[Rfam]
Nucleotides: 040
Base pairs, nucleotide, nucleotide: 001030002029003028004027005026006025
Number, partner (000 for none) and nucleotide at each position: 001030c002029c003028a004027u005026g006025g007000u008000g009000g010000c011000g012000g013000c014000u015000g016000g017000g018000g019000a020000c021000a022000g023000c024000c025006c026005c027004a028003u029002g030001g031000u032000g033000g034000c035000g036000g037000a038000u039000g040000g
Prion pseudoknot: a 40-nucleotide RNA. The literature on the family includes a 2001 paper in Nucleic Acids Res by Barrette et al., "Pseudoknots in prion protein mRNAs confirmed by comparative sequence analysis and pattern searching". Rfam classes the family as a cis-regulatory element. Pairs were carried over by alignment from the consensus structure, which is taken from published work. Its family is annotated with translation in the Gene Ontology. This family represents a predicted pseudoknot structure found in prion protein mRNA. It has been suggested that the family has a possible effect in prion protein translation.